[Rfam]
RNA sequence: UUUUAAGCACUUACUAUGUGCCAGGCACUUAUACUAAUAGUGCUUGGCACAUAGUAAGUGCUUAAAA
Number, nucleotide and partner (000 for none) at each position: 001u067002u066003u065004u064005a063006a062007g061008c060009a059010c058011u057012u056013a055014c054015u053016a052017u051018g050019u049020g048021c047022c046023a045024g044025g043026c042027a041028c040029u039030u000031a000032u000033a000034c000035u000036a000037a000038u000039a029040g028041u027042g026043c025044u024045u023046g022047g021048c020049a019050c018051a017052u016053a015054g014055u013056a012057a011058g010059u009060g008061c007062u006063u005064a004065a003066a002067a001

Rfam assigns this 67-nucleotide RNA sequence from Ornithorhynchus anatinus to the family "mir-3116 microRNA precursor family". The base pairs follow the family's consensus structure, which was predicted with RNAalifold. The source organism's lineage runs through Eukaryota, Eumetazoa, Sarcopterygii, Ornithorhynchidae and Ornithorhynchus. Gene Ontology terms of the family: RISC complex and miRNA-mediated post-transcriptional gene silencing.